[Rfam]
Shown here is a 201-nucleotide RNA sequence from Thalictrum thalictroides, a member of the family "Early nodulin 40".
The family's RNA type in Rfam is non-coding RNA gene.
Gene Ontology term of the family: nodulation.
A reference for the family is Gultyaev and Roussis (2007), "Identification of conserved secondary structures and expansion segments in enod40 RNAs reveals new enod40 homologues in plants", Nucleic Acids Res.

RNA sequence: AUGGUAACUUGUUGGGAAGAAGCUAUUCAUGGCUCUUGAAAAAAUUAUGUAUGGAGUUUGGAGUGAGGGAAGUUGCACUCUCCUCCAAAUAACGCCAUCUAUGCUUGGUCAUUGUUUCUGCUAAACUCUGCAGAGCUUUUGGCUAAUGCAUUGCAAACCGGCAAGUCACAGAACGGCGAAGGAGACUCCAUCAAGGGUCUU
Numbered sequence: 001a002u003g004g005u006a007a008c009u010u011g012u013u014g015g016g017a018a019g020a021a022g023c024u025a026u027u028c029a030u031g032g033c034u035c036u037u038g039a040a041a042a043a044a045u046u047a048u049g050u051a052u053g054g055a056g057u058u059u060g061g062a063g064u065g066a067g068g069g070a071a072g073u074u075g076c077a078c079u080c081u082c083c084u085c086c087a088a089a090u091a092a093c094g095c096c097a098u099c100u101a102u103g104c105u106u107g108g109u110c111a112u113u114g115u116u117u118c119u120g121c122u123a124a125a126c127u128c129u130g131c132a133g134a135g136c137u138u139u140u141g142g143c144u145a146a147u148g149c150a151u152u153g154c155a156a157a158c159c160g161g162c163a164a165g166u167c168a169c170a171g172a173a174c175g176g177c178g179a180a181g182g183a184g185a186c187u188c189c190a191u192c193a194a195g196g197g198u199c200u201u
Base pairs, nucleotide, nucleotide: 060086061085062084100156102155103154104153115148117146184199185198186197187196188195